This 384-nucleotide sequence from Litorimonas cladophorae belongs to the Rfam family "Bacterial RNase P class A". It scores 295 bits against the family's covariance model. NCBI's taxonomy places the organism under Bacteria, Pseudomonadati, Pseudomonadota, Maricaulales, Litorimonas.

RNA sequence: UCAGGAGGCUGGACGAUCGCGGGUGCUUGCAUCUGAGGAAAGUCCGGGCUCCAUCGCGUACAGGAUGCCGGGUAACGCCCGGCCGGUUUAGACGUAAAGUCUGGGCUGAGGGACAGUGCCACAGAGAGGAGACUACCCAAGUGCUUUGCUUGCAAACACGAGGGAAAAGCUGAAAGGGUGCGGUAAGAGCGCACCGGGCGACUGGCAACAGUCGCCGCAAGGUAAACCCCAUCCGGAGCAAAACCAAAUAGGGACGACAUUGUGUGUCGCGUCACCGUCGUCCGGGUUGGUUGCAUGAGGCACGUCGCAAGACGGGUCCUAGAUGAAUGAUCGUCACCUGUUUUCGGACAGGGACAAAACCCGGCUUAUAGGCCUCCUGACAUU
Numbered sequence: 001u002c003a004g005g006a007g008g009c010u011g012g013a014c015g016a017u018c019g020c021g022g023g024u025g026c027u028u029g030c031a032u033c034u035g036a037g038g039a040a041a042g043u044c045c046g047g048g049c050u051c052c053a054u055c056g057c058g059u060a061c062a063g064g065a066u067g068c069c070g071g072g073u074a075a076c077g078c079c080c081g082g083c084c085g086g087u088u089u090a091g092a093c094g095u096a097a098a099g100u101c102u103g104g105g106c107u108g109a110g111g112g113a114c115a116g117u118g119c120c121a122c123a124g125a126g127a128g129g130a131g132a133c134u135a136c137c138c139a140a141g142u143g144c145u146u147u148g149c150u151u152g153c154a155a156a157c158a159c160g161a162g163g164g165a166a167a168a169g170c171u172g173a174a175a176g177g178g179u180g181c182g183g184u185a186a187g188a189g190c191g192c193a194c195c196g197g198g199c200g201a202c203u204g205g206c207a208a209c210a211g212u213c214g215c216c217g218c219a220a221g222g223u224a225a226a227c228c229c230c231a232u233c234c235g236g237a238g239c240a241a242a243a244c245c246a247a248a249u250a251g252g253g254a255c256g257a258c259a260u261u262g263u264g265u266g267u268c269g270c271g272u273c274a275c276c277g278u279c280g281u282c283c284g285g286g287u288u289g290g291u292u293g294c295a296u297g298a299g300g301c302a303c304g305u306c307g308c309a310a311g312a313c314g315g316g317u318c319c320u321a322g323a324u325g326a327a328u329g330a331u332c333g334u335c336a337c338c339u340g341u342u343u344u345c346g347g348a349c350a351g352g353g354a355c356a357a358a359a360c361c362c363g364g365c366u367u368a369u370a371g372g373c374c375u376c377c378u379g380a381c382a383u384u
Stems, first nucleotide, its partner, number of pairs: 001380010011369001012335007020035006040367003044364005049238004058270002063234005068082005083110001084108010111229002116227002118223003133169002136164003141159003177195006196218001197216008242292004252283006264275003299318003303314004